RtT RNA: a 126-nucleotide sequence from Frischella perrara. It is annotated as a cis-regulatory element. Rfam describes the family as follows. This family represents a bacterial cis-regulatory element known as RtT RNA. The exact function of RtT is unknown although it is thought that it may be involved in changing the cellular response in relation to amino acid starvation. Gene Ontology term of the family: cellular response to amino acid starvation.

RNA sequence: UAUUAUCUGCAUUUUGAGAGGAUGAGAACCGACCAGAGGUUCGAGCCGAGCGCAGCGAGACAACGUUGCUUUAGCAACGACCCGUAGGGUGAGCAUGAAAUGCGAGUAAUCCUCUCUCGCCGACCA
Numbered sequence: 001u002a003u004u005a006u007c008u009g010c011a012u013u014u015u016g017a018g019a020g021g022a023u024g025a026g027a028a029c030c031g032a033c034c035a036g037a038g039g040u041u042c043g044a045g046c047c048g049a050g051c052g053c054a055g056c057g058a059g060a061c062a063a064c065g066u067u068g069c070u071u072u073a074g075c076a077a078c079g080a081c082c083c084g085u086a087g088g089g090u091g092a093g094c095a096u097g098a099a100a101u102g103c104g105a106g107u108a109a110u111c112c113u114c115u116c117u118c119g120c121c122g123a124c125c126a
Base pairs, nucleotide, nucleotide: 016116017115018114019113020112021111023109030091031090033089034088040086042084043083047057048056064079065078066077067076068075069074